RNA sequence: GGCUGGUCCGAAGGUAGUGGGUUAUCUCAAUUGAUUGUUCACAGUCAGUUACAGAUUUCCUUGUUCUCUCUUCCCCCUUCCCACUACUGCACUUGACCAGUCUUUU
Numbered sequence: 001g002g003c004u005g006g007u008c009c010g011a012a013g014g015u016a017g018u019g020g021g022u023u024a025u026c027u028c029a030a031u032u033g034a035u036u037g038u039u040c041a042c043a044g045u046c047a048g049u050u051a052c053a054g055a056u057u058u059c060c061u062u063g064u065u066c067u068c069u070c071u072u073c074c075c076c077c078u079u080c081c082c083a084c085u086a087c088u089g090c091a092c093u094u095g096a097c098c099a100g101u102c103u104u105u106u
Stems, first nucleotide, its partner, number of pairs: 001102008010094002014090002016085006033068002037064002
A member of the RNA family "Y RNA" from Microcaecilia unicolor, 106 nucleotides long.
A search with the family's covariance model found it, with a score of 78 bits.
The family's RNA type in Rfam is non-coding RNA gene.
Rfam 15.1 lists 26,986 matches to the family in 650 species.